[Rfam]
RNA sequence: UCCCUCACAGUUCUCCGACUCACGUUUUCCGCAAGGAAUGUCUAUCGCAGGCCCCCUUCCCAUCUGGUUAACCGCAAUAUGCCGCUCUCGAGCCUGUAUCAGGUCCUCGUUAUGCUGCAGCUGGAUUAUUGUGGAUGCACCGCGACCUGUAGAGGUUGUACCAGGGCAGAAGGGUAACGCGUUUCGGAACUUAACCCUAAGAAGAUAU
Numbered sequence: 001u002c003c004c005u006c007a008c009a010g011u012u013c014u015c016c017g018a019c020u021c022a023c024g025u026u027u028u029c030c031g032c033a034a035g036g037a038a039u040g041u042c043u044a045u046c047g048c049a050g051g052c053c054c055c056c057u058u059c060c061c062a063u064c065u066g067g068u069u070a071a072c073c074g075c076a077a078u079a080u081g082c083c084g085c086u087c088u089c090g091a092g093c094c095u096g097u098a099u100c101a102g103g104u105c106c107u108c109g110u111u112a113u114g115c116u117g118c119a120g121c122u123g124g125a126u127u128a129u130u131g132u133g134g135a136u137g138c139a140c141c142g143c144g145a146c147c148u149g150u151a152g153a154g155g156u157u158g159u160a161c162c163a164g165g166g167c168a169g170a171a172g173g174g175u176a177a178c179g180c181g182u183u184u185c186g187g188a189a190c191u192u193a194a195c196c197c198u199a200a201g202a203a204g205a206u207a208u
Stems, first nucleotide, its partner, number of pairs: 009191003015187004